[Rfam]
A member of the RNA family "Metazoan signal recognition particle RNA" from Mucor saturninus, 298 nucleotides long.
Rfam links the family to the GO terms SRP-dependent cotranslational protein targeting to membrane, signal sequence recognition and signal recognition particle, endoplasmic reticulum targeting.
The signal recognition particle (SRP) is a universally conserved ribonucleoprotein. It is involved in the co-translational targeting of proteins to membranes. The eukaryotic SRP consists of a 300-nucleotide 7S RNA and six proteins: SRPs 72, 68, 54, 19, 14, and 9. Archaeal SRP consists of a 7S RNA and homologues of the eukaryotic SRP19 and SRP54 proteins.
It is annotated as a non-coding RNA gene.
The organism belongs to Mucor, within Eukaryota.
It scores 118 bits against the family's covariance model.

RNA sequence: ACCGGAAAGUUUCACGCCUUUCUGUACGCAAAGUUGCGGUCUUCGAAGAGAUGAAUUCAUUCUUCGGUGGAAUUAACAGUGUACUUUGUGAAUUUGUCGAAAACAGUGUCUUAGAGAGUCUGGUGUCAACAUUCGAGUUUAAGCGUAGGCAUAAAUUCGGAGGUUGUUCAAUACUGGGGUAUCGCCCGAGGGUAGCAAUACAGCAGGGAAAACCUAGAGCACUGGUUCGGCUGUGAGAUAGCACGUUGGAGAAUCAUUUAAGUACAUUGCCACUGGGAAUGGGAACUCCCUCUUUUUU
Numbered sequence: 001a002c003c004g005g006a007a008a009g010u011u012u013c014a015c016g017c018c019u020u021u022c023u024g025u026a027c028g029c030a031a032a033g034u035u036g037c038g039g040u041c042u043u044c045g046a047a048g049a050g051a052u053g054a055a056u057u058c059a060u061u062c063u064u065c066g067g068u069g070g071a072a073u074u075a076a077c078a079g080u081g082u083a084c085u086u087u088g089u090g091a092a093u094u095u096g097u098c099g100a101a102a103a104c105a106g107u108g109u110c111u112u113a114g115a116g117a118g119u120c121u122g123g124u125g126u127c128a129a130c131a132u133u134c135g136a137g138u139u140u141a142a143g144c145g146u147a148g149g150c151a152u153a154a155a156u157u158c159g160g161a162g163g164u165u166g167u168u169c170a171a172u173a174c175u176g177g178g179g180u181a182u183c184g185c186c187c188g189a190g191g192g193u194a195g196c197a198a199u200a201c202a203g204c205a206g207g208g209a210a211a212a213c214c215u216a217g218a219g220c221a222c223u224g225g226u227u228c229g230g231c232u233g234u235g236a237g238a239u240a241g242c243a244c245g246u247u248g249g250a251g252a253a254u255c256a257u258u259u260a261a262g263u264a265c266a267u268u269g270c271c272a273c274u275g276g277g278a279a280u281g282g283g284a285a286c287u288c289c290c291u292c293u294u295u296u297u298u
Stems, first nucleotide, its partner, number of pairs: 001040003004023006011016001028037003045295006053287001056285003060281001062277002065275006077269010088258001092254004097249001102247003106244004110237004115232002118228001120225007127166004132161010143150002167173001174217005185208003192201003